[Rfam]
RNA sequence: CCCGGAGGACCGACAACUUCGGAUGGAGGCGGGGGACCCACCGGUCCACCGAGUCAACGGGGACCUGGGGCCGCACGCGGCUCCUUGGGGUGAAGCCGUCACCCGACGGCCGGGCAGCCUCUCCAGCCCGAACCCGACAGCUCACCCCGCAGGCGUCGACGAGAGGACAU
Numbered sequence: 001c002c003c004g005g006a007g008g009a010c011c012g013a014c015a016a017c018u019u020c021g022g023a024u025g026g027a028g029g030c031g032g033g034g035g036a037c038c039c040a041c042c043g044g045u046c047c048a049c050c051g052a053g054u055c056a057a058c059g060g061g062g063a064c065c066u067g068g069g070g071c072c073g074c075a076c077g078c079g080g081c082u083c084c085u086u087g088g089g090g091u092g093a094a095g096c097c098g099u100c101a102c103c104c105g106a107c108g109g110c111c112g113g114g115c116a117g118c119c120u121c122u123c124c125a126g127c128c129c130g131a132a133c134c135c136g137a138c139a140g141c142u143c144a145c146c147c148c149g150c151a152g153g154c155g156u157c158g159a160c161g162a163g164a165g166g167a168c169a170u
Base pairs, nucleotide, nucleotide: 010153011152017028018027019026029150030149031148032147033146034145039087040086088135089134090133096109097108098107099106112129113128114127115126
c-di-AMP riboswitch aptamer (ydaO/yuaA leader): a 170-nucleotide RNA sequence from Mycolicibacterium hassiacum. From the family's description: This family represents a conserved RNA structure found upstream of the ydaO and yuaA genes in Bacillus subtilis and related genes in other bacteria. NCBI's taxonomy places the organism under Bacteria, Actinomycetes, Mycobacteriales, Mycobacterium (subgen. Mycolicibacterium), Mycolicibacterium hassiacum.